[Rfam]
RNA sequence: GCCUUGCAACAGGGGCGUCCGCGUCAGGCGGGCUGAGAAGCACCCUUCGAACCUGAACCGGAUCAUGCCGGCGGAGGAAGUUGCGGGGACGUCGCC
Dot-bracket structure: .....(((((((((.((((((.......)))))......)..)))).....(((...((((......))))...)))..)))))............
RNA: TPP riboswitch aptamer (THI element)
Organism: Roseivivax sp. THAF197b